[Rfam]
RNA sequence: AUCAUGAUACUCCUGUCCGGUCAUAAAGUCGAGCAUAUAAGAUGUCGCAACAAGUGAGGGCAGCUUUGGGAGAACCUCAGAGGGGCACAGGCCCGUGG
Numbered sequence: 001a002u003c004a005u006g007a008u009a010c011u012c013c014u015g016u017c018c019g020g021u022c023a024u025a026a027a028g029u030c031g032a033g034c035a036u037a038u039a040a041g042a043u044g045u046c047g048c049a050a051c052a053a054g055u056g057a058g059g060g061c062a063g064c065u066u067u068g069g070g071a072g073a074a075c076c077u078c079a080g081a082g083g084g085g086c087a088c089a090g091g092c093c094c095g096u097g098g
Stems, first nucleotide, its partner, number of pairs: 012095001013063006064082003068078003083094003

Overview:
Rfam assigns this 98-nucleotide RNA sequence from Eubacteriaceae bacterium CHKCI004 to the family "pemK RNA". Lineage of the source: Bacteria > Bacillati > Bacillota > Eubacteriales > Eubacteriaceae. Rfam classes the family as a cis-regulatory element.